[Rfam]
RNA sequence: AUUGUUAUCGCUUCUCUAGGUUCAUGCUUAAGAGCUGGUUGUGGUUCUUGAGCUCUGGAAAGUGAAGCAAAAUGCUUAGUGGUUCCUCUCGCUAUCCGGGGCAGAAUUCUCUUUGAUGCCACUGGACGUCGAGGAAGUAUAUUU
Numbered sequence: 001a002u003u004g005u006u007a008u009c010g011c012u013u014c015u016c017u018a019g020g021u022u023c024a025u026g027c028u029u030a031a032g033a034g035c036u037g038g039u040u041g042u043g044g045u046u047c048u049u050g051a052g053c054u055c056u057g058g059a060a061a062g063u064g065a066a067g068c069a070a071a072a073u074g075c076u077u078a079g080u081g082g083u084u085c086c087u088c089u090c091g092c093u094a095u096c097c098g099g100g101g102c103a104g105a106a107u108u109c110u111c112u113u114u115g116a117u118g119c120c121a122c123u124g125g126a127c128g129u130c131g132a133g134g135a136a137g138u139a140u141a142u143u144u
Stems, first nucleotide, its partner, number of pairs: 002071001003069003008065006016058002019055002026053011083136006090128002095126005105114001

This 144-nucleotide sequence from Leersia perrieri belongs to the Rfam family "Small nucleolar RNA snoR136". Rfam links the family to the GO terms nucleolus and RNA processing. For this family Rfam cites "Mining small RNA sequencing data: a new approach to identify small nucleolar RNAs in Arabidopsis" (Chen and Wu, Nucleic Acids Res, 2009). Lineage of the source: Eukaryota > Tracheophyta > Euphyllophyta > Poaceae > Leersia.